[Rfam]
RNA sequence: GUCAGUAACCCAGCCCUAAAGGGACUGGGCUUGCAAGAAUAAUCAAGCAAGCCGUACUGACCAGACCACCCUGAGUCUACUCUCAUGGUAGCCGUUAUUUGAGUCACGACACCCACCGAAUGCGUUGCCAGUUCCCUGCUCUGUCGCUUGUGAUUAAACAGUUCUAAGGUCACUGGAACAGUGUUGCAAGCUCAAGCAAGCUCUUAUAACAGGUCGAGGCUAACAUUAC
Numbered sequence: 001g002u003c004a005g006u007a008a009c010c011c012a013g014c015c016c017u018a019a020a021g022g023g024a025c026u027g028g029g030c031u032u033g034c035a036a037g038a039a040u041a042a043u044c045a046a047g048c049a050a051g052c053c054g055u056a057c058u059g060a061c062c063a064g065a066c067c068a069c070c071c072u073g074a075g076u077c078u079a080c081u082c083u084c085a086u087g088g089u090a091g092c093c094g095u096u097a098u099u100u101g102a103g104u105c106a107c108g109a110c111a112c113c114c115a116c117c118g119a120a121u122g123c124g125u126u127g128c129c130a131g132u133u134c135c136c137u138g139c140u141c142u143g144u145c146g147c148u149u150g151u152g153a154u155u156a157a158a159c160a161g162u163u164c165u166a167a168g169g170u171c172a173c174u175g176g177a178a179c180a181g182u183g184u185u186g187c188a189a190g191c192u193c194a195a196g197c198a199a200g201c202u203c204u205u206a207u208a209a210c211a212g213g214u215c216g217a218g219g220c221u222a223a224c225a226u227u228a229c
Base pairs, nucleotide, nucleotide: 001061002060003059004058005057006056007055010029011028012026013025015022016021030051031050032049033048064215065214066213067212070087094210095209096208097207098206101203102202103201104200109144110143114138115137118134119133120132121131125222127220128219129218146191147190148189149188150187151186152185153184154183158182159181161179162178163177164176165175166174

Rfam assigns this 229-nucleotide sequence from Anabaena sp. 90 to the family "HNH endonuclease-associated RNA and ORF (HEARO) RNA". Pairs were carried over by alignment from the consensus structure, which is taken from published work. On this family, see Weinberg et al., Nature 2009: "Exceptional structured noncoding RNAs revealed by bacterial metagenome analysis". Taxonomically the source falls in Anabaena (Bacteria, Cyanobacteriota, Cyanophyceae, Nostocales). It is annotated as a non-coding RNA gene.